[Rfam]
The family of this 155-nucleotide RNA from Paenibacillus tyrphae is "c-di-AMP riboswitch aptamer (ydaO/yuaA leader)".
RNA sequence: AAAUUCUAAAAGCCGAAUCGCACAGCAAAUUUUGUGUACGUACGGGGGACGCAAUACAUGGGGUGAAUGCCGCAGAACCGUGAGGUUCGAAGGCUAGGGAGCAUACCUCUUCCCGAACCCGACAACUAACCUCGGAGGCUAACAGGAGGGAAAAU
Numbered sequence: 001a002a003a004u005u006c007u008a009a010a011a012g013c014c015g016a017a018u019c020g021c022a023c024a025g026c027a028a029a030u031u032u033u034g035u036g037u038a039c040g041u042a043c044g045g046g047g048g049a050c051g052c053a054a055u056a057c058a059u060g061g062g063g064u065g066a067a068u069g070c071c072g073c074a075g076a077a078c079c080g081u082g083a084g085g086u087u088c089g090a091a092g093g094c095u096a097g098g099g100a101g102c103a104u105a106c107c108u109c110u111u112c113c114c115g116a117a118c119c120c121g122a123c124a125a126c127u128a129a130c131c132u133c134g135g136a137g138g139c140u141a142a143c144a145g146g147a148g149g150g151a152a153a154a155u
Base pairs, nucleotide, nucleotide: 011140012139013138014137019040020039043134044133045132046131047130052060053059061120062119063118069094070093071092097114098113099112100111
Rfam's curators write: This family represents a conserved RNA structure found upstream of the ydaO and yuaA genes in Bacillus subtilis and related genes in other bacteria.